[Rfam]
RNA: FMN riboswitch aptamer (RFN element)
Organism: Terrilactibacillus tamarindi
Nucleotides: 149
Base pairs, nucleotide, nucleotide: 004146005145006144007143008142009141010140017029018028019027031129032128033119034118035067036066037065038064062117063116071094072093099115100114101113102112103111121132122131123130
Number, partner (000 for none) and nucleotide at each position: 001000u002000u003000a004146g005145u006144c007143c008142u009141u010140c011000g012000g013000g014000g015000u016000a017029g018028g019027g020000u021000g022000a023000a024000a025000u026000u027019c028018c029017c030000a031129a032128c033119c034118g035067g036066c037065g038064g039000u040000g041000a042000u043000g044000a045000u046000g047000c048000u049000u050000u051000a052000a053000a054000g055000u056000a057000u058000c059000u060000a061000a062117g063116c064038c065037c066036g067035u068000g069000a070000c071094c072093c073000g074000g075000u076000u077000a078000u079000c080000u081000u082000u083000u084000a085000a086000g087000a088000u089000a090000a091000g092000c093072g094071g095000u096000g097000g098000a099115u100114u101113c102112a103111g104000u105000g106000a107000g108000a109000a110000a111103c112102u113101g114100a115099a116063g117062c118034c119033g120000a121132c122131a123130g124000u125000a126000c127000a128032g129031u130123c131122u132121g133000g134000a135000u136000g137000g138000g139000a140010g141009a142008a143007g144006g145005a146004u147000c148000g149000u